The family of this 70-nucleotide RNA sequence from Anolis carolinensis is "mir-29 microRNA precursor family".
It is one of the family's seed sequences.
Taxonomically the source falls in Anolis (Eukaryota, Deuterostomia, Craniata, Sauria).
The literature on the family includes a 2001 paper in Cell by Ambros, "microRNAs: tiny regulators with great potential".

RNA sequence: GGAAGCUGGUUUCAUAUGGUGGUUUAGAUUUAAGUACACAAUGUCUAGCACCAUUUGAAAUCAGUGCUCU
Numbered sequence: 001g002g003a004a005g006c007u008g009g010u011u012u013c014a015u016a017u018g019g020u021g022g023u024u025u026a027g028a029u030u031u032a033a034g035u036a037c038a039c040a041a042u043g044u045c046u047a048g049c050a051c052c053a054u055u056u057g058a059a060a061u062c063a064g065u066g067c068u069c070u
Base pairs, nucleotide, nucleotide: 001070002069003068005065006064007063008062009061010060011059012058013057014056016054017053018052019051020050021049025047026046027045028044

Background: This family represents the microRNA (miRNA) precursors mir-29. Rfam links the family to the GO terms gene silencing by miRNA and RISC complex.